[Rfam]
RNA sequence: CCCCCAUCUCUCAGGAUGAACCCUGUGCCUCUGAGCUGCUGUGAUUCUGGCUUCAAAGUAAACACUCUGAAGAGAGGGGUGGAGG
Numbered sequence: 001c002c003c004c005c006a007u008c009u010c011u012c013a014g015g016a017u018g019a020a021c022c023c024u025g026u027g028c029c030u031c032u033g034a035g036c037u038g039c040u041g042u043g044a045u046u047c048u049g050g051c052u053u054c055a056a057a058g059u060a061a062a063c064a065c066u067c068u069g070a071a072g073a074g075a076g077g078g079g080u081g082g083a084g085g
Stems, first nucleotide, its partner, number of pairs: 002085002005082001008079003